[Rfam]
RNA sequence: UUGCCCGUCCUGGACCUGUGUCCUUGACGUUUGACACGGGGGGUAAAGCAGCUCUCCCAUAAACCUGUGGUAGAGGCUCUGUCCCUCACUGCGGAUCCUGUCGGGAGGAACACGC
Dot-bracket structure: .(((((..((..((...............)....)..)).)))))........(((((......(((((((.(((.........))))))))))........)))))........
Rfam assigns this 115-nucleotide RNA sequence from Gadus morhua to the family "Small nucleolar RNA SNORA26". Gene Ontology terms of the family: nucleolus and RNA processing. NCBI's taxonomy places the organism under Eukaryota, Chordata, Euteleosteomorpha, Ctenosquamata, Gadus. About the family: The snoRNA HBI-6 belong to the H/ACA family of snoRNAs, guiding the pseudouridylation of position U4522 if the 28S rRNA. HBI-6 is the human orthologue of mouse MBI-6 snoRNA.